[Rfam]
RT-18 RNA: an 84-nucleotide sequence. Pairs were carried over by alignment from the consensus structure, which is taken from published work.
RNA sequence: UACCCCUUGGUAAAAAUAGGCCGCGAAUGACGCUGGUUAGUACGCCAGGAAUGGAGCUGGAAAGUCAGCGAGGCUAACAAAGAG
Numbered sequence: 001u002a003c004c005c006c007u008u009g010g011u012a013a014a015a016a017u018a019g020g021c022c023g024c025g026a027a028u029g030a031c032g033c034u035g036g037u038u039a040g041u042a043c044g045c046c047a048g049g050a051a052u053g054g055a056g057c058u059g060g061a062a063a064g065u066c067a068g069c070g071a072g073g074c075u076a077a078c079a080a081a082g083a084g
Base pairs, nucleotide, nucleotide: 001012002011003010004009019075020074021073022072031070032069033068034067035066036065037064043059044058045054046053047052